This 88-nucleotide sequence from Rhynochetos jubatus belongs to the Rfam family "mir-1426 microRNA precursor family". The source organism's lineage runs through Eukaryota, Teleostomi, Archelosauria, Neoaves and Rhynochetos. A search with the family's covariance model found it, with a score of 77 bits.

[Rfam]
RNA sequence: CAGAGUUGAUCCUCUUUCCUUAACUCAUGCUGCUGUGCCUUUUUGUUUAUUUCACAAUUGUGUGAGUUGAGUAUAGAGUGUCAGUCUA
Numbered sequence: 001c002a003g004a005g006u007u008g009a010u011c012c013u014c015u016u017u018c019c020u021u022a023a024c025u026c027a028u029g030c031u032g033c034u035g036u037g038c039c040u041u042u043u044u045g046u047u048u049a050u051u052u053c054a055c056a057a058u059u060g061u062g063u064g065a066g067u068u069g070a071g072u073a074u075a076g077a078g079u080g081u082c083a084g085u086c087u088a
Base pairs, nucleotide, nucleotide: 005085006084007083008082009081010080012078013077019071020070021069022068023067024066025065026064027063028062034056035055036054037053